mir-101 microRNA precursor family: a 75-nucleotide RNA sequence from Carassius auratus. The source organism's lineage runs through Eukaryota, Actinopteri, Osteoglossocephalai, Cypriniformes and Carassius. Its family is annotated with RISC complex and miRNA-mediated post-transcriptional gene silencing in the Gene Ontology. The family has 59 seed sequences and 1,334 matches in Rfam 15.1. On this family, see Lagos-Quintana et al., Curr Biol 2002: "Identification of tissue-specific microRNAs from mouse".

RNA sequence: UGUCCAUUUUCAGUUAUCAUGGCACCGGUGCUGUGUGUGUGUCGAGUACAGUACUAUGAUAACUGAAGAUUGACG
Numbered sequence: 001u002g003u004c005c006a007u008u009u010u011c012a013g014u015u016a017u018c019a020u021g022g023c024a025c026c027g028g029u030g031c032u033g034u035g036u037g038u039g040u041g042u043c044g045a046g047u048a049c050a051g052u053a054c055u056a057u058g059a060u061a062a063c064u065g066a067a068g069a070u071u072g073a074c075g
Stems, first nucleotide, its partner, number of pairs: 011065012024052002027049001029048004